[Rfam]
RNA sequence: GCAGGAGGACGGCCUCCCCCAUAUCGGGAACGCUUCGGGACGGCCCGU
Numbered sequence: 001g002c003a004g005g006a007g008g009a010c011g012g013c014c015u016c017c018c019c020c021a022u023a024u025c026g027g028g029a030a031c032g033c034u035u036c037g038g039g040a041c042g043g044c045c046c047g048u
Base pairs, nucleotide, nucleotide: 001020004017005016006015007014008013036047037046038045039044
RNA: Guanidine-II riboswitch aptamer (mini-ykkC)
Organism: Hyphomonas neptunium